[Rfam]
The family of this 107-nucleotide RNA sequence is "iscR stability element". The match comes from Rfam's covariance-model search (42 bits). For this family Rfam cites "Small RNA-induced differential degradation of the polycistronic mRNA iscRSUA" (Desnoyers et al., EMBO J, 2009). Gene Ontology term of the family: response to host iron concentration.
RNA sequence: AACAAGAAUUUUAGAAUCAGGUUGGGGGAGCGGUGCUCCCUGUCUAUAACGGCAGCAUAUUUUAAGCCUGAUUCUUCGCAUUGAAGUGAUGUACGGAGCUUAAGAGC
Dot-bracket structure: .......(.(((.((((((((((((((.(.......)))))).......................)))))))))....(((.......)))....))).).......
Numbered sequence: 001a002a003c004a005a006g007a008a009u010u011u012u013a014g015a016a017u018c019a020g021g022u023u024g025g026g027g028g029a030g031c032g033g034u035g036c037u038c039c040c041u042g043u044c045u046a047u048a049a050c051g052g053c054a055g056c057a058u059a060u061u062u063u064a065a066g067c068c069u070g071a072u073u074c075u076u077c078g079c080a081u082u083g084a085a086g087u088g089a090u091g092u093a094c095g096g097a098g099c100u101u102a103a104g105a106g107c
Stems, first nucleotide, its partner, number of pairs: 008100001010098003014074009023042005029037001079091003